[Rfam]
Nucleotides: 092
Base pairs, nucleotide, nucleotide: 005085006084007083008082009081010080011079012078015040016039017038020034021033022032023031024030043064044063045062046061047060048059049058050057051056065077066076067075068074
Number, partner (000 for none) and nucleotide at each position: 001000g002000a003000a004000a005085c006084c007083u008082c009081a010080u011079c012078u013000u014000g015040c016039u017038c018000a019000c020034g021033c022032g023031c024030c025000a026000u027000c028000c029000g030024g031023g032022u033021g034020c035000u036000a037000a038017g039016a040015g041000c042000g043064g044063u045062g046061u047060u048059u049058u050057c051056c052000c053000g054000a055000g056051g057050g058049a059048a060047a061046g062045c063044a064043c065077g066076a067075g068074c069000a070000c071000u072000c073000c074068g075067c076066u077065c078012g079011g080010a081009u082008g083007g084006g085005g086000a087000g088000a089000g090000a091000g092000u
RAGATH-10 RNA: a 92-nucleotide RNA. The literature on the family includes a 2015 paper in Nat Chem Biol by Weinberg et al., "New classes of self-cleaving ribozymes revealed by comparative genomics analysis". The family's RNA type in Rfam is small RNA.